[Rfam]
Rfam assigns this 378-nucleotide RNA sequence from Motilibacter rhizosphaerae to the family "Bacterial RNase P class A".
It scores 281 bits against the family's covariance model.
Rfam classes the family as a ribozyme.

RNA sequence: CGAGUCGGCCGGGCGGUCGCGUCACCGGGGCGACCCGGUGCCGAGGAAGGUCCGGACUCCACAGGGCAGGGUGGUGGCCAACAGCCACCCGGGGUGACCCGCGGGACAGUGCCACAGAGAGCAGACCGCCUCUCGCCCUCCGGGGCGAGCGGUAAGGGUGAAACGGUGGUGUAAGAGACCACCAGCGCCCGGGGUGACCCGGGCGGCUCGGCAAACCCCACCUGGAGCAAGGCCGAACAGGGAGCGUCCGAGGGCUGCCCGCCCGAGCUCCCGGGUAGGCCGCUGGAGGCUGUCGGCAACGGCAGCCCGAGAUGGAUGACCGCCGGCCGCCGCGCGAGCGGCGGUGCACAGGAUCCGGCCUACAGGCCGGCUCGUCCC
Numbered sequence: 001c002g003a004g005u006c007g008g009c010c011g012g013g014c015g016g017u018c019g020c021g022u023c024a025c026c027g028g029g030g031c032g033a034c035c036c037g038g039u040g041c042c043g044a045g046g047a048a049g050g051u052c053c054g055g056a057c058u059c060c061a062c063a064g065g066g067c068a069g070g071g072u073g074g075u076g077g078c079c080a081a082c083a084g085c086c087a088c089c090c091g092g093g094g095u096g097a098c099c100c101g102c103g104g105g106a107c108a109g110u111g112c113c114a115c116a117g118a119g120a121g122c123a124g125a126c127c128g129c130c131u132c133u134c135g136c137c138c139u140c141c142g143g144g145g146c147g148a149g150c151g152g153u154a155a156g157g158g159u160g161a162a163a164c165g166g167u168g169g170u171g172u173a174a175g176a177g178a179c180c181a182c183c184a185g186c187g188c189c190c191g192g193g194g195u196g197a198c199c200c201g202g203g204c205g206g207c208u209c210g211g212c213a214a215a216c217c218c219c220a221c222c223u224g225g226a227g228c229a230a231g232g233c234c235g236a237a238c239a240g241g242g243a244g245c246g247u248c249c250g251a252g253g254g255c256u257g258c259c260c261g262c263c264c265g266a267g268c269u270c271c272c273g274g275g276u277a278g279g280c281c282g283c284u285g286g287a288g289g290c291u292g293u294c295g296g297c298a299a300c301g302g303c304a305g306c307c308c309g310a311g312a313u314g315g316a317u318g319a320c321c322g323c324c325g326g327c328c329g330c331c332g333c334g335c336g337a338g339c340g341g342c343g344g345u346g347c348a349c350a351g352g353a354u355c356c357g358g359c360c361u362a363c364a365g366g367c368c369g370g371c372u373c374g375u376c377c378c
Stems, first nucleotide, its partner, number of pairs: 001374010011363001012324007020043002023040006048361003052358005057227004064260004069223005074088005089103001090101004104218002109216002111212003126157002128153003132149007165183006185207001186205008231281004240272006252264004288307008